The record is a 96-nucleotide RNA from Streptococcus australis, which matches "Purine riboswitch aptamer" in Rfam. The family's consensus secondary structure is taken from published work. Lineage of the source: Bacteria > Bacillati > Streptococcaceae > Streptococcus > Streptococcus australis. The family is grouped with related families in Rfam's "Purine riboswitches".
RNA sequence: CUCAUUAAAACUACAAUUACUUAUUUAUCUUGCGGAUUGGCGCAAGGUCUCUACAAGGUGCCGGAACACCUAACAAUAAGUAAGUCUUAGAUUGAU
Numbered sequence: 001c002u003c004a005u006u007a008a009a010a011c012u013a014c015a016a017u018u019a020c021u022u023a024u025u026u027a028u029c030u031u032g033c034g035g036a037u038u039g040g041c042g043c044a045a046g047g048u049c050u051c052u053a054c055a056a057g058g059u060g061c062c063g064g065a066a067c068a069c070c071u072a073a074c075a076a077u078a079a080g081u082a083a084g085u086c087u088u089a090g091a092u093u094g095a096u
Base pairs, nucleotide, nucleotide: 018082019081020080021079022078023077024076025075029046030045031044032043033042034041056071057070058069059068060067
About the family: Riboswitches are metabolite binding domains within certain messenger RNAs that serve as precision sensors for their corresponding targets. Allosteric rearrangement of mRNA structure is mediated by ligand binding, and this results in modulation of gene expression.